[Rfam]
RNA sequence: UCUCACAAAAAGGGGGUCACAGCAGGAGCGUUAAAUGUCGCGGUCCCGAUCGAACCCACGUACUGAUGGGUCGUGAAUCCUGCU
Numbered sequence: 001u002c003u004c005a006c007a008a009a010a011a012g013g014g015g016g017u018c019a020c021a022g023c024a025g026g027a028g029c030g031u032u033a034a035a036u037g038u039c040g041c042g043g044u045c046c047c048g049a050u051c052g053a054a055c056c057c058a059c060g061u062a063c064u065g066a067u068g069g070g071u072c073g074u075g076a077a078u079c080c081u082g083c084u
Stems, first nucleotide, its partner, number of pairs: 013047006021084007028041003051073003055069001057068001

About this RNA:
Rfam assigns this 84-nucleotide RNA sequence from Zootermopsis nevadensis to the family "Mammalian CPEB3 ribozyme".